A member of the RNA family "Small nucleolar RNA Z247" from Kalanchoe fedtschenkoi, 139 nucleotides long. The match comes from Rfam's covariance-model search (43 bits). Rfam links the family to the GO terms RNA processing and nucleolus. Pairs were carried over by alignment from the consensus structure, which was predicted with PFOLD. The source organism's lineage runs through Eukaryota, Streptophytina, Mesangiospermae, Gunneridae and Kalanchoe.
RNA sequence: CAUCUUCAAGAUGAUGAGCUUAUUGAGUAGAUUCUCAUAGGACACGAUUACGACUUCAACUCUAUUGUCUUUGCUCUUAUUGUUAGGACGGAACCAGUGCCUAUUAGUGAGCUUUUUUUUCUCAUGCUUGUUUUUGAGA
Numbered sequence: 001c002a003u004c005u006u007c008a009a010g011a012u013g014a015u016g017a018g019c020u021u022a023u024u025g026a027g028u029a030g031a032u033u034c035u036c037a038u039a040g041g042a043c044a045c046g047a048u049u050a051c052g053a054c055u056u057c058a059a060c061u062c063u064a065u066u067g068u069c070u071u072u073g074c075u076c077u078u079a080u081u082g083u084u085a086g087g088a089c090g091g092a093a094c095c096a097g098u099g100c101c102u103a104u105u106a107g108u109g110a111g112c113u114u115u116u117u118u119u120u121c122u123c124a125u126g127c128u129u130g131u132u133u134u135u136g137a138g139a
Base pairs, nucleotide, nucleotide: 004138005137006136008134088108089107091105092104